[Rfam]
RNA sequence: GCGCGGCCCCCGCCGAGUCCGGUGCCGUGCCGGAGCCGGGGACCCGCGCGCACCACCUGGGGUGAAUCGAUCCGGCCCCGCCGGACCGUAGGGCAACCCUUCCGGAAGUCCCGCCCGAACCCGACAGCUAACCCGGUAGGCGGGAGACGGAAGGAGU
Dot-bracket structure: ..........((((...(((((.......)))))((((((....((...........))(((.....((.(((.........))).))..((((..................))))...))).........)))))).))))...............